[Rfam]
The family of this 72-nucleotide RNA sequence from Heliornis fulica is "Small nucleolar RNA SNORD83". The family's RNA type in Rfam is C/D-box small nucleolar RNA. Lineage of the source: Eukaryota > Opisthokonta > Coelurosauria > Gruiformes > Heliornis. Its family is annotated with nucleolus and RNA processing in the Gene Ontology. The family's consensus secondary structure was predicted with PFOLD.
RNA sequence: GCCAAAUGAUGUGAAAUAGAUGGCAUGAGCACUGCAAAGAUGACCUUCAUCUAUCACCCCAUACUGAUGGCU
Numbered sequence: 001g002c003c004a005a006a007u008g009a010u011g012u013g014a015a016a017u018a019g020a021u022g023g024c025a026u027g028a029g030c031a032c033u034g035c036a037a038a039g040a041u042g043a044c045c046u047u048c049a050u051c052u053a054u055c056a057c058c059c060c061a062u063a064c065u066g067a068u069g070g071c072u
Base pairs, nucleotide, nucleotide: 001071002070003069004068029035030034